[Rfam]
The family of this 370-nucleotide RNA from Pteropus vampyrus is "Bag-1 internal ribosome entry site (IRES)". About the family: This family represents the bag-1 internal ribosome entry site (IRES). When expressed the BAG-1 protein is known to enhance the anti-apoptotic properties of Bcl-2. Although bag-1 translation usually occurs via a cap-dependent mechanism it has been found to contain a IRES in its 5' UTR. Translation via the IRES has been found to be common following heat shock when cap-dependent scanning is compromised. A reference for the family is Coldwell et al. (2001), "The p36 isoform of BAG-1 is translated by internal ribosome entry following heat shock", Oncogene.
RNA sequence: UGGGCCGGCAACAGGCGCGGGUCUGGCGGAGCGCGGUGGCGCGCAGAGACAGCGAGGCGACCGGCAGCGGCUGGGCCCCCGGCGGCGCGCCCCUCGGCCGGGCCGGGAGUCGCGCCAGUCGGUGCCCCCAGCGGAGCGCGGUCGGCCUCAUUCUCAGAGAUCAUCUGUCCAGAGUGUGGCCAGAGGGCAUGUGGGAUCCACCAGGGGCGCCGCCGCCGGCGCUCGCAGGCCGCGGGUGAAGAAGAAAGUGCGGCCUCGCUCAGCCCGGAGCGAAGAAGUGGCCGGGAGCGAAGAGGUGACCGGGAGCGAAGAGGUGACUGAGAGUGAAGAAGUGACUCUAAGCGAAGAGGUAGCCCUAAGCGAAGAGGUG
Dot-bracket structure: ...................((((((((..........((.((((.(...).)).......((((..((......))..))))......)).))...))))))))........................................(((((................(((((..............)))))...............((((((((....))))))))................................(((((......)))))..........................................................................)))))...................